Rfam assigns this 74-nucleotide sequence from Octopus sinensis to the family "Mammalian CPEB3 ribozyme".
The match comes from Rfam's covariance-model search (39 bits).

RNA sequence: UUUUCUUUCACAGGAGUCAGUGCAAAAGUGUUCUCGUCGCGAUUCCUGUCAAAAACCUUUCUGUGAAUUGUGCU
Numbered sequence: 001u002u003u004u005c006u007u008u009c010a011c012a013g014g015a016g017u018c019a020g021u022g023c024a025a026a027a028g029u030g031u032u033c034u035c036g037u038c039g040c041g042a043u044u045c046c047u048g049u050c051a052a053a054a055a056c057c058u059u060u061c062u063g064u065g066a067a068u069u070g071u072g073c074u
Stems, first nucleotide, its partner, number of pairs: 013046006022073003026069002028040003050063002053060002
Pairs were carried over by alignment from the consensus structure, which is taken from published work.